[Rfam]
RNA sequence: ACGACCUUACUUGAACAGGAUCUGUUCUAUAGGCUCGUACCUCUGUAUCCUUGAGUUCUAAGGAGACAGGAACCUAAGUCUGGUGGAUGAAAUAUGACUGUGUGACCAGAGCGUGAUUAACAGCCAUGAGGCCCCUUGGUCCUCAGGGCGGUAGAGGAUCGUUCUCAGCCAGUGUUCAUCUGGCUGGGCUGGUCAUGCAGUUGUCUGACAGACU
Numbered sequence: 001a002c003g004a005c006c007u008u009a010c011u012u013g014a015a016c017a018g019g020a021u022c023u024g025u026u027c028u029a030u031a032g033g034c035u036c037g038u039a040c041c042u043c044u045g046u047a048u049c050c051u052u053g054a055g056u057u058c059u060a061a062g063g064a065g066a067c068a069g070g071a072a073c074c075u076a077a078g079u080c081u082g083g084u085g086g087a088u089g090a091a092a093u094a095u096g097a098c099u100g101u102g103u104g105a106c107c108a109g110a111g112c113g114u115g116a117u118u119a120a121c122a123g124c125c126a127u128g129a130g131g132c133c134c135c136u137u138g139g140u141c142c143u144c145a146g147g148g149c150g151g152u153a154g155a156g157g158a159u160c161g162u163u164c165u166c167a168g169c170c171a172g173u174g175u176u177c178a179u180c181u182g183g184c185u186g187g188g189c190u191g192g193u194c195a196u197g198c199a200g201u202u203g204u205c206u207g208a209c210a211g212a213c214u
Stems, first nucleotide, its partner, number of pairs: 001038002003035001005033003013027006043069004048064006078213005097201012110163004120152002123149003127145005133139001165187008174179001
Rfam assigns this 214-nucleotide RNA sequence from Nyssa sinensis to the family "Plant small nucleolar RNA U3". The family's RNA type in Rfam is C/D-box small nucleolar RNA. Taxonomically the source falls in Nyssa (Eukaryota, Streptophyta, Magnoliopsida, Cornales). The family has 24 seed sequences and 3,759 matches in Rfam 15.1. The family's consensus secondary structure is taken from published work. Gene Ontology terms of the family: nucleolus and RNA processing. The match comes from Rfam's covariance-model search (201 bits).